mir-196 microRNA precursor family: a 77-nucleotide sequence from Clupea harengus. A reference for the family is Lagos-Quintana et al. (2003), "New microRNAs from mouse and human", RNA. The family's consensus secondary structure was predicted with PFOLD.

RNA sequence: UGUGUGAUUUAGGUAGUUUCAAGUUGUUGGGGUGGACGAUUAAUAUCGCAGGAACCUGAAACUGCCUGAAUCAAUCC
Numbered sequence: 001u002g003u004g005u006g007a008u009u010u011a012g013g014u015a016g017u018u019u020c021a022a023g024u025u026g027u028u029g030g031g032g033u034g035g036a037c038g039a040u041u042a043a044u045a046u047c048g049c050a051g052g053a054a055c056c057u058g059a060a061a062c063u064g065c066c067u068g069a070a071u072c073a074a075u076c077c
Stems, first nucleotide, its partner, number of pairs: 005073015023055003027051003031047001